[Rfam]
RNA sequence: CAACUGCGAUGAUGUGGGAGAUUGCUCAGAAAUGAGGUAACUUCCACGGAGUAUGUCCGAGCUAGAAUCGGGCGGCUG
Dot-bracket structure: .............(((.(((....((((....)))).....)))))).........(..((((..........)))))
RNA: S10-Clostridia ribosomal protein leader
Organism: Ruminococcaceae bacterium D16